[Rfam]
Nucleotides: 388
Base pairs, nucleotide, nucleotide: 001384002383003382004381005380006379007378008377009376010375012329013328014327015326016325017324018323020045021044023042024041025040026039027038028037050371051370052369054368055367056366057365058364059232060231061230062229066265067264068263069262071228072227073226074225075224076090077089078088079087080086091105092103093102094101095100106223107222111221112220113217114216115215128162129161130158131157132156133155134154135153137151138150170188171187172186173185174184175183190212191210193208194207195206196205197204198203236286237285238284239283245277246276247275248274249273250272257269258268259267260266293312294311295310296309297308298307299306300305
Number, partner (000 for none) and nucleotide at each position: 001384u002383g003382g004381g005380u006379u007378g008377g009376c010375u011000g012329g013328g014327c015326g016325a017324u018323c019000g020045c021044g022000u023042u024041g025040g026039c027038a028037g029000g030000u031000g032000c033000a034000a035000a036000c037028c038027u039026g040025c041024u042023g043000c044021c045020g046000a047000g048000g049000a050371a051370a052369g053000u054368c055367c056366g057365g058364g059232c060231u061230c062229c063000g064000c065000a066265g067264a068263g069262c070000a071228g072227a073226g074225u075224g076090g077089u078088g079087g080086g081000u082000a083000a084000c085000g086080c087079c088078c089077a090076c091105u092103c093102g094101g095100g096000g097000u098000a099000a100095c101094c102093c103092g104000c105091a106223g107222g108000c109000c110000a111221g112220u113217g114216c115215c116000a117000c118000a119000g120000a121000a122000a123000a124000c125000a126000a127000a128162c129161c130158g131157c132156c133155a134154g135153g136000a137151c138150c139000g140000c141000c142000c143000a144000u145000g146000g147000g148000c149000g150138g151137g152000a153135u154134c155133u156132g157131g158130u159000a160000a161129g162128g163000g164000u165000g166000a167000a168000a169000a170188g171187g172186u173185g174184g175183u176000g177000u178000a179000a180000g181000a182000g183175a184174c185173c186172a187171c188170c189000a190212g191210u192000g193208u194207c195206c196205c197204g198203g199000g200000u201000g202000a203198c204197c205196g206195g207194g208193a209000g210191a211000g212190c213000u214000a215115g216114g217113u218000a219000a220112a221111c222107c223106c224075c225074a226073c227072u228071c229062g230061g231060a232059g233000c234000a235000a236286g237285g238284c239283c240000a241000u242000a243000c244000a245277g246276g247275g248274u249273a250272c251000g252000u253000u254000u255000g256000a257269g258268g259267g260266c261000u262069g263068c264067u265066c266260g267259c268258c269257c270000g271000a272250g273249u274248g275247c276246c277245c278000g279000g280000g281000u282000a283239g284238g285237c286236c287000g288000c289000u290000u291000g292000a293312g294311g295310g296309c297308a298307u299306c300305g301000g302000c303000a304000a305300c306299g307298g308297u309296g310295c311294c312293c313000c314000u315000a316000g317000a318000u319000g320000g321000a322000u323018g324017a325016u326015u327014g328013c329012c330000a331000c332000c333000c334000g335000g336000c337000g338000g339000c340000g341000g342000g343000u344000a345000a346000c347000u348000g349000c350000c351000g352000c353000c354000g355000g356000c357000g358000a359000c360000a361000g362000a363000a364058c365057c366056c367055g368054g369052c370051u371050u372000a373000g374000a375010g376009g377008c378007c379006a380005a381004c382003c383002c384001a385000u386000c387000c388000c
Shown here is a 388-nucleotide RNA sequence from Crystallibacter crystallopoietes, a member of the family "Bacterial RNase P class A". Its family is annotated with tRNA processing, ribonuclease P activity and dimeric ribonuclease P complex in the Gene Ontology. The source organism's lineage runs through Bacteria, Actinomycetota, Actinomycetes, Micrococcales and Crystallibacter. Pairs were carried over by alignment from the consensus structure, which is taken from published work.